Shown here is a 73-nucleotide RNA sequence from Pseudoroseicyclus aestuarii, a member of the family "L2-Alphaproteobacteria ribosomal protein leader". The base pairs follow the family's consensus structure, which is taken from published work. A search with the family's covariance model found it, with a score of 52 bits.
RNA sequence: GGGGACCUUCGGGGCCCUUUGGAAGAACCGGGCCGGCACGAGGUCGCGCCCGCAAAGCAACGGAAGACAGAAA
Numbered sequence: 001g002g003g004g005a006c007c008u009u010c011g012g013g014g015c016c017c018u019u020u021g022g023a024a025g026a027a028c029c030g031g032g033c034c035g036g037c038a039c040g041a042g043g044u045c046g047c048g049c050c051c052g053c054a055a056a057g058c059a060a061c062g063g064a065a066g067a068c069a070g071a072a073a
Stems, first nucleotide, its partner, number of pairs: 001018004006014003030051004